[Rfam]
RNA sequence: CUCUGAAGAGAUCGAUGUAAAUCGACACCGAAGGAGAAAUACACUUAUGUGUAGAAGCUCUCAGGUUUGAAAACAGAG
Dot-bracket structure: (((((......((((......)))).(((((..(((...((..........))....))))).))).......)))))